Record summary
This 80-nucleotide RNA from Thomasclavelia cocleata belongs to the Rfam family "ZMP/ZTP riboswitch aptamer (pfl RNA motif)". NCBI's taxonomy places the organism under Bacteria, Bacillati, Bacillota, Erysipelotrichales, Thomasclavelia.
[Rfam]
RNA sequence: AAAUAGUUAUACGACUGACGGAAGUGGAAUUAACCACAGGGAGUAUAAUCAUGGAAGAGCCGACCGUCUGGGCAAGAGUC
Number, nucleotide and partner (000 for none) at each position: 001a000002a000003a052004u051005a000006g049007u048008u047009a046010u045011a044012c043013g000014a000015c040016u039017g068018a067019c066020g065021g064022a000023a000024g037025u036026g035027g034028a000029a000030u000031u000032a000033a000034c027035c026036a025037c024038a000039g016040g015041g000042a000043g012044u011045a010046u009047a008048a007049u006050c000051a004052u003053g000054g000055a000056a000057g000058a000059g073060c072061c071062g000063a000064c021065c020066g019067u018068c017069u000070g000071g061072g060073c059074a000075a000076g000077a000078g000079u000080c000